[Rfam]
RNA: Xanthine riboswitch aptamer (NMT1 RNA)
RNA sequence: AAACAGAGUAGAAGCGGCUAGCGAGCCGGCAUGUCCAUGCCGGUCACCGUGGGGCAUUGCUCUUGGG
Dot-bracket structure: ....((((((....[..((.(((.((((((((....))))))))...))).]))...))))))....